[Rfam]
Nucleotides: 137
Stems, first nucleotide, its partner, number of pairs: 001099004009057001012055007058085003063081003067077002102126005108120002110117002
Number, partner (000 for none) and nucleotide at each position: 001099g002098a003097u004096c005000a006000c007000g008000a009057a010000g011000u012055c013054c014053g015052a016051c017050g018049g019000c020000c021000c022000c023000a024000c025000u026000c027000c028000g029000g030000u031000g032000g033000g034000g035000c036000g037000a038000a039000g040000c041000c042000u043000u044000c045000c046000g047000g048000c049018u050017c051016g052015u053014c054013g055012g056000c057009u058085g059084g060083c061000a062000a063081c064080c065079g066000c067077g068076c069000a070000c071000a072000u073000c074000g075000c076068g077067c078000a079065c080064g081063g082000u083060g084059c085058c086000c087000c088000c089000g090000g091000g092000a093000g094000a095000a096004g097003a098002u099001c100000c101000g102126c103125c104124g105123g106122c107000a108120c109119g110117c111116g112000c113000a114000a115000c116111c117110g118000c119109c120108g121000c122106g123105c124104c125103g126102g127000a128000a129000g130000a131000g132000c133000g134000a135000u136000u137000c
Shown here is a 137-nucleotide RNA from Corynebacterium ureicelerivorans, a member of the family "SAM (S-adenosyl methionine) riboswitch aptamer". About the family: SAM-IV is a mRNA element that regulates gene expression via direct sensing of S-adenosylmethionine (SAM or AdoMet). SAM-IV riboswitches share conserved nucleotide positions with the previously described SAM-I riboswitches sequence analysis and molecular recognition experiments suggest that SAM-I and SAM-IV riboswitches share similar ligand binding sites, but have different scaffolds. For this family Rfam cites "The aptamer core of SAM-IV riboswitches mimics the ligand-binding site of SAM-I riboswitches" (Weinberg et al., RNA, 2008). Its family is annotated with S-adenosylmethionine metabolic process and regulation of gene expression in the Gene Ontology. The organism belongs to Corynebacterium, within Bacteria.